[Rfam]
The record is a 98-nucleotide RNA from Gossypium davidsonii, which matches "MIR398 microRNA precursor family" in Rfam. Pairs were carried over by alignment from the consensus structure, which was predicted with WAR. A reference for the family is Xie et al. (2005), "Expression of Arabidopsis MIRNA genes", Plant Physiol.
RNA sequence: AGGAAUCCGACUGGGUCGACCUUAGAAUACAUGUGAUUGUUUUUCGAUUUCGAUGUGGUUUGUUUCAUGUGUUCUCAGGUCGCCCCUGUCGGGUUUUC
Numbered sequence: 001a002g003g004a005a006u007c008c009g010a011c012u013g014g015g016u017c018g019a020c021c022u023u024a025g026a027a028u029a030c031a032u033g034u035g036a037u038u039g040u041u042u043u044u045c046g047a048u049u050u051c052g053a054u055g056u057g058g059u060u061u062g063u064u065u066c067a068u069g070u071g072u073u074c075u076c077a078g079g080u081c082g083c084c085c086c087u088g089u090c091g092g093g094u095u096u097u098c
Base pairs, nucleotide, nucleotide: 007092008091011088013086014085017082018081019080024075025074026073027072028071029070030069031068032067